[Rfam]
RNA sequence: CUGUGCCGGACAGUUGGUUUUCACCUUGAUCUGGGAGUGUAGUGCAUCUGAGAUCAUCGUGAAAGCUAGUUGUCGAAGCCUC
Numbered sequence: 001c002u003g004u005g006c007c008g009g010a011c012a013g014u015u016g017g018u019u020u021u022c023a024c025c026u027u028g029a030u031c032u033g034g035g036a037g038u039g040u041a042g043u044g045c046a047u048c049u050g051a052g053a054u055c056a057u058c059g060u061g062a063a064a065g066c067u068a069g070u071u072g073u074c075g076a077a078g079c080c081u082c
Stems, first nucleotide, its partner, number of pairs: 009074004016067009027056006034049003037045002

About this RNA:
The family of this 82-nucleotide sequence from Ancylostoma duodenale is "mir-81 microRNA precursor family". Its family is annotated with RISC complex and miRNA-mediated post-transcriptional gene silencing in the Gene Ontology. Taxonomically the source falls in Ancylostoma (Eukaryota, Nematoda, Rhabditida, Rhabditina).